[Rfam]
RNA sequence: AUUGCCCUGCGGUGUACGUGAUGCCCAUUGUGUUUUGUUCCAACACUUUUUUAAACGGGAGUUCGGCGUCUCUACCGUAGUAAUGCCUGCCUGCUAGUUCAGGACGCAUGAUGCGGAUGAGCAGGACACCCACCUGCGAGAGCAGGAUCAAAACCUCGGGUGACACGGCAGUUGCGGGGCGGAU
Dot-bracket structure: .((((((((((.(((.(((............(((.((.(((...............(((.((((.(.....(..((((......((...((((......))))..)).....))))..)..).)))).))).............))).)).)))..........))))))..))))))))))..
Annotation
6S / SsrS RNA: a 184-nucleotide RNA sequence from Alicyclobacillus tolerans. E. coli 6S RNA was the first non coding RNA to be sequenced, but its function was unknown until recently. It consists of 184 nucleotides that fold into an extended hairpin structure with a large single-stranded internal bulge. The 6S RNA specifically associates with RNA polymerase holoenzyme containing the sigma70 specificity factor. This interaction represses expression from a sigma70-dependent promoter during stationary phase. 6S RNA homologs have recently been identified in most bacterial genomes. Many Gram-positive species have two copies of 6S RNA. In Bacillus subtilis, both copies appear to interact with RNA polymerase holoenzyme containing the housekeeping sigma factor and be expressed during different stages of growth. In many proteobacteria, 6S RNA may be processed from a transcript encoding homologs of the E. coli YgfA protein which is a putative 5-formyltetrahydrofolate cycloligase activity.